Notes: The family of this 132-nucleotide RNA from Papaver somniferum is "U11 spliceosomal RNA".
RNA sequence: UAAAAGGGUCGGGUGGCUAAAUAUGCCACGCUUACCCAUAGAUUGGUAAGUGCUGUAUGGCUAUCAAGACAUAUGGCCGACAUAAUUUGUGGAAUCUUAUAUAGGAUUGGCUCUUUUCUGGCCGACCCUCCA
Numbered sequence: 001u002a003a004a005a006g007g008g009u010c011g012g013g014u015g016g017c018u019a020a021a022u023a024u025g026c027c028a029c030g031c032u033u034a035c036c037c038a039u040a041g042a043u044u045g046g047u048a049a050g051u052g053c054u055g056u057a058u059g060g061c062u063a064u065c066a067a068g069a070c071a072u073a074u075g076g077c078c079g080a081c082a083u084a085a086u087u088u089g090u091g092g093a094a095u096c097u098u099a100u101a102u103a104g105g106a107u108u109g110g111c112u113c114u115u116u117u118c119u120g121g122c123c124g125a126c127c128c129u130c131c132a
Stems, first nucleotide, its partner, number of pairs: 008081005014028004029052008038043001053076007101129001104127002107124001110122003
Its Rfam clan is "U1 clan". Its family is annotated with mRNA 5'-splice site recognition, pre-mRNA 5'-splice site binding and U11 snRNP in the Gene Ontology.